Small nucleolar RNA SNORA15: a 138-nucleotide RNA sequence from Myotis lucifugus. Rfam describes the family as follows. ACA15 is a member of the H/ACA class of snoRNA that guide the sites of modification of uridines to pseudouridines. The base pairs follow the family's consensus structure, which was predicted with RNAfold. The source organism's lineage runs through Eukaryota, Vertebrata, Teleostomi, Tetrapoda and Myotis. The literature on the family includes a 2001 paper in EMBO J by Huttenhofer et al., "RNomics: an experimental approach that identifies 201 candidates for novel, small, non-messenger RNAs in mouse".
RNA sequence: GCAUGGCUGAAUACUGUGUUCUUUUUGUCAGUAGCUUACACAGCCAGACACCAUGCAAAAGUAGUCUUCCCUUUAAAAUGGCUAUGAUGGUAUGCCACGUUUUUUCAUAGCAUAUCAUUACUAAAAGUGGAUACAAAU
Numbered sequence: 001g002c003a004u005g006g007c008u009g010a011a012u013a014c015u016g017u018g019u020u021c022u023u024u025u026u027g028u029c030a031g032u033a034g035c036u037u038a039c040a041c042a043g044c045c046a047g048a049c050a051c052c053a054u055g056c057a058a059a060a061g062u063a064g065u066c067u068u069c070c071c072u073u074u075a076a077a078a079u080g081g082c083u084a085u086g087a088u089g090g091u092a093u094g095c096c097a098c099g100u101u102u103u104u105u106c107a108u109a110g111c112a113u114a115u116c117a118u119u120a121c122u123a124a125a126a127g128u129g130g131a132u133a134c135a136a137a138u
Stems, first nucleotide, its partner, number of pairs: 001056006014043006067131003070127001072125004085120011097108001